Nucleotides: 148
Stems, first nucleotide, its partner, number of pairs: 001056005015043003019039002021036004082140003087135001101122007
Number, partner (000 for none) and nucleotide at each position: 001056c002055c003054u004053c005052c006000u007000u008000u009000u010000c011000a012000u013000g014000g015043u016042g017041g018000a019039g020038a021036c022035g023034a024033g025000c026000a027000u028000g029000c030000a031000g032000u033024c034023u035022u036021g037000g038020u039019c040000c041017c042016c043015g044000u045000a046000g047000g048000a049000u050000g051000c052005g053004g054003a055002g056001g057000c058000a059000g060000a061000g062000g063000g064000a065000a066000a067000g068000g069000g070000c071000u072000c073000a074000g075000g076000c077000c078000c079000g080000c081000u082140u083139g084138g085000c086000a087135u088000c089000a090000c091000g092000u093000c094000u095000u096000c097000g098000g099000u100000a101122c102121u103120g104119g105118c106117g107116g108000c109000u110000u111000c112000c113000a114000g115000c116107c117106u118105g119104c120103c121102a122101g123000u124000u125000c126000u127000a128000u129000c130000a131000u132000c133000a134000a135087g136000c137000c138084u139083c140082a141000g142000g143000u144000c145000a146000u147000a148000g